[Rfam]
RNA sequence: CGAACCGCAGCGGGAGAGCCCCGGCCGUGCCGGGCGCCGAAGGAGCAACACUCCCCGUCAAUCUCUCAGGCCCACGUACCGCCGCGGUGAG
Numbered sequence: 001c002g003a004a005c006c007g008c009a010g011c012g013g014g015a016g017a018g019c020c021c022c023g024g025c026c027g028u029g030c031c032g033g034g035c036g037c038c039g040a041a042g043g044a045g046c047a048a049c050a051c052u053c054c055c056c057g058u059c060a061a062u063c064u065c066u067c068a069g070g071c072c073c074a075c076g077u078a079c080c081g082c083c084g085c086g087g088u089g090a091g
Stems, first nucleotide, its partner, number of pairs: 006086003010082004020034004036071003039067002043065003049057001
RNA: Glycine riboswitch aptamer
Organism: Catellatospora sp. IY07-71